About this RNA:
Rfam assigns this 142-nucleotide RNA sequence from Parageobacillus caldoxylosilyticus to the family "c-di-AMP riboswitch aptamer (ydaO/yuaA leader)". The base pairs follow the family's consensus structure. Taxonomically the source falls in Parageobacillus caldoxylosilyticus (Bacteria, Bacilli, Caryophanales, Parageobacillus).
RNA sequence: AUAGGGAAAUCGCUGAAUCCUUAAUGGAGCGGGGGACCCAAUGUUGUAACGUCCGUUACUUGGGGUGAAUCCUGAAAAGGAAGGGCUAUCUCUCCAUGCCCUAACCCGACAGCUAACCUCGUAAGCGUUCUGGGGAGGGAUG
Numbered sequence: 001a002u003a004g005g006g007a008a009a010u011c012g013c014u015g016a017a018u019c020c021u022u023a024a025u026g027g028a029g030c031g032g033g034g035g036a037c038c039c040a041a042u043g044u045u046g047u048a049a050c051g052u053c054c055g056u057u058a059c060u061u062g063g064g065g066u067g068a069a070u071c072c073u074g075a076a077a078a079g080g081a082a083g084g085g086c087u088a089u090c091u092c093u094c095c096a097u098g099c100c101c102u103a104a105c106c107c108g109a110c111a112g113c114u115a116a117c118c119u120c121g122u123a124a125g126c127g128u129u130c131u132g133g134g135g136a137g138g139g140a141u142g
Stems, first nucleotide, its partner, number of pairs: 011127004018028003029122006039062002063107003071080003083101004